The family of this 217-nucleotide part of an RNA from Trichoderma gamsii is "Ascomycota telomerase RNA". The family has 4 seed sequences and 475 matches in Rfam 15.1. Rfam links the family to the GO terms telomerase catalytic core complex, telomere maintenance via telomerase and telomerase activity. Rfam classes the family as a non-coding RNA gene.
RNA sequence: UCCCCCACAGUUUCCCGAUGCCUCGUUUUCCGCAAGGAAUGUCUAUUGCAGCCCCCCCUCCCCAGACUUGGUCAUCCGCAAUAUGCCGCUUCCAGGCCUGCUCCAGGAUCUUGUUGAAUGCUGCAGCUGGAUCUAUUGCGAUGCGUCUCUGCCCGGCACCCAGGCAGCCAAGUCUAGCUGGGGGAAUGAGUUUCGGAACUUAACCCUAAGCAUACAU
Numbered sequence: 001u002c003c004c005c006c007a008c009a010g011u012u013u014c015c016c017g018a019u020g021c022c023u024c025g026u027u028u029u030c031c032g033c034a035a036g037g038a039a040u041g042u043c044u045a046u047u048g049c050a051g052c053c054c055c056c057c058c059u060c061c062c063c064a065g066a067c068u069u070g071g072u073c074a075u076c077c078g079c080a081a082u083a084u085g086c087c088g089c090u091u092c093c094a095g096g097c098c099u100g101c102u103c104c105a106g107g108a109u110c111u112u113g114u115u116g117a118a119u120g121c122u123g124c125a126g127c128u129g130g131a132u133c134u135a136u137u138g139c140g141a142u143g144c145g146u147c148u149c150u151g152c153c154c155g156g157c158a159c160c161c162a163g164g165c166a167g168c169c170a171a172g173u174c175u176a177g178c179u180g181g182g183g184g185a186a187u188g189a190g191u192u193u194c195g196g197a198a199c200u201u202a203a204c205c206c207u208a209a210g211c212a213u214a215c216a217u
Stems, first nucleotide, its partner, number of pairs: 009200003015196004